[Rfam]
RNA sequence: ACAGCCUUACUUGCCAUUAUAGUCCUUUGGCAUACGGAAGCAUUGGCAUUAUCCGGCUGAAAGAGAAGCUGUGUUGAUCUUCCUUGGUUUUGCCUUUAUGAGGGUGAAAUCAUGACAGAUUAACAUGCUCAAUU
Number, nucleotide and partner (000 for none) at each position: 001a000002c000003a058004g057005c056006c055007u000008u000009a000010c000011u000012u000013g000014c000015c000016a000017u000018u000019a000020u045021a044022g043023u042024c000025c040026u039027u038028u037029g000030g000031c000032a000033u000034a000035c000036g000037g028038a027039a026040g025041c000042a023043u022044u021045g020046g000047c000048a000049u000050u000051a000052u000053c000054c000055g006056g005057c004058u003059g000060a000061a000062a000063g000064a000065g000066a000067a000068g000069c000070u127071g126072u125073g124074u123075u122076g121077a120078u119079c118080u000081u000082c000083c000084u000085u112086g111087g110088u109089u108090u107091u106092g105093c104094c103095u102096u101097u000098a000099u000100g000101a096102g095103g094104g093105u092106g091107a090108a089109a088110u087111c086112a085113u000114g000115a000116c000117a000118g079119a078120u077121u076122a075123a074124c073125a072126u071127g070128c000129u000130c000131a000132a000133u000134u000

The record is a 134-nucleotide RNA from Orycteropus afer, which matches "Small nucleolar RNA SNORA69" in Rfam. Rfam's curators write: U69 is a member of the H/ACA class of small nucleolar RNAs (snoRNAs) which act as guides in the the modification of uridines to pseudouridines. The base pairs follow the family's consensus structure, which was predicted with PFOLD.